RNA sequence: AUUACAACUUCUUAAGUAAUGAUUUAAGGGCGUCUAGCUUGGUAACGAGCUAGAGUAUUACUGGGUGAAUUGCUGGAACUUCCUAAAGCUUUAUCAACCACAACGUAACUGGAAACGGUAAGCGUGAAGGUCUGAAAAUGAUGAAGAUGCAACAAUGGAUAAUCAGCAGCCAAGCUCCUGUCUCGAAAGAGUGGAGAAGGUUCAACGACUAGAGAACACGGUCUAAGGCAAAAGCUAUGACUAUGAAUCUCGUAGGGUGGUAAAGACCAUUCGAAGUGCCCAGCUCCAUGGAAACCAUGGAUGAAGAUAUAGUCUAUUCUGUAAUCGAAAGAUACAG
Numbered sequence: 001a002u003u004a005c006a007a008c009u010u011c012u013u014a015a016g017u018a019a020u021g022a023u024u025u026a027a028g029g030g031c032g033u034c035u036a037g038c039u040u041g042g043u044a045a046c047g048a049g050c051u052a053g054a055g056u057a058u059u060a061c062u063g064g065g066u067g068a069a070u071u072g073c074u075g076g077a078a079c080u081u082c083c084u085a086a087a088g089c090u091u092u093a094u095c096a097a098c099c100a101c102a103a104c105g106u107a108a109c110u111g112g113a114a115a116c117g118g119u120a121a122g123c124g125u126g127a128a129g130g131u132c133u134g135a136a137a138a139u140g141a142u143g144a145a146g147a148u149g150c151a152a153c154a155a156u157g158g159a160u161a162a163u164c165a166g167c168a169g170c171c172a173a174g175c176u177c178c179u180g181u182c183u184c185g186a187a188a189g190a191g192u193g194g195a196g197a198a199g200g201u202u203c204a205a206c207g208a209c210u211a212g213a214g215a216a217c218a219c220g221g222u223c224u225a226a227g228g229c230a231a232a233a234g235c236u237a238u239g240a241c242u243a244u245g246a247a248u249c250u251c252g253u254a255g256g257g258u259g260g261u262a263a264a265g266a267c268c269a270u271u272c273g274a275a276g277u278g279c280c281c282a283g284c285u286c287c288a289u290g291g292a293a294a295c296c297a298u299g300g301a302u303g304a305a306g307a308u309a310u311a312g313u314c315u316a317u318u319c320u321g322u323a324a325u326c327g328a329a330a331g332a333u334a335c336a337g
Base pairs, nucleotide, nucleotide: 007033008032010030011029012028013027038049039048040047061283062282063281064280066278067277071168072167073166074165075164076163081159082158083157169201170200176194177193182189183188205315207314208313209312210311211310285301286300287299288298289297290296291295321335322334324333325332326331